[Rfam]
RNA sequence: AUGGGCUAGGAAAUGGCUGCUGUGUGGCUGGGUCUCCUUGGGGUCCUGCUUUAUACCAGUGAGCCUGACUUUGCCCUAGAUUAAGAAAAGGGGUUCCUUUUAGGGGUCCGCUUUAUGCAGUAACAGGUGUGAGCAUUCUUACAGGAACCUGAUGGUCAUGUAUGAUACUGCAUACAGAU
Number, nucleotide and partner (000 for none) at each position: 001a000002u000003g076004g075005g074006c073007u000008a071009g070010g069011a000012a000013a000014u000015g065016g064017c063018u062019g060020c059021u058022g057023u000024g056025u055026g050027g049028c048029u000030g046031g000032g044033u043034c042035u000036c000037c000038u000039u000040g000041g000042g034043g033044u032045c000046c030047u000048g028049c027050u026051u000052u000053a000054u000055a025056c024057c022058a021059g020060u019061g000062a018063g017064c016065c015066u000067g000068a000069c010070u009071u008072u000073g006074c005075c004076c003077u000078a000079g000080a000081u000082u000083a000084a000085g000086a000087a000088a101089a100090g099091g098092g097093g000094u000095u000096c000097c092098u091099u090100u089101u088102a000103g000104g000105g000106g000107u000108c000109c000110g000111c000112u000113u000114u174115a173116u172117g171118c170119a169120g168121u167122a166123a000124c164125a163126g000127g000128u000129g000130u158131g157132a156133g000134c154135a153136u152137u151138c000139u000140u000141a000142c000143a000144g000145g000146a000147a000148c000149c000150u000151g137152a136153u135154g134155g000156u132157c131158a130159u000160g000161u000162a000163u125164g124165a000166u122167a121168c120169u119170g118171c117172a116173u115174a114175c000176a000177g000178a000179u000